[Rfam]
RNA sequence: UACUUAUCAAGAGAGGUGGAGGGACUGGCCCUAUGAAACCCAGCAACCAGCAUUUUGCAUGGUGCUAAAUCCUGCGGUAUUUUUAUACCGAAAGAUGAGAA
Numbered sequence: 001u002a003c004u005u006a007u008c009a010a011g012a013g014a015g016g017u018g019g020a021g022g023g024a025c026u027g028g029c030c031c032u033a034u035g036a037a038a039c040c041c042a043g044c045a046a047c048c049a050g051c052a053u054u055u056u057g058c059a060u061g062g063u064g065c066u067a068a069a070u071c072c073u074g075c076g077g078u079a080u081u082u083u084u085a086u087a088c089c090g091a092a093a094g095a096u097g098a099g100a101a
Stems, first nucleotide, its partner, number of pairs: 001101001003099006013041001015040003021031003025074001027072002042066004047062002050058003070093001075090006
Shown here is a 101-nucleotide sequence from Hathewaya proteolytica, a member of the family "SAM riboswitch aptamer (S box leader)". The match comes from Rfam's covariance-model search (94 bits).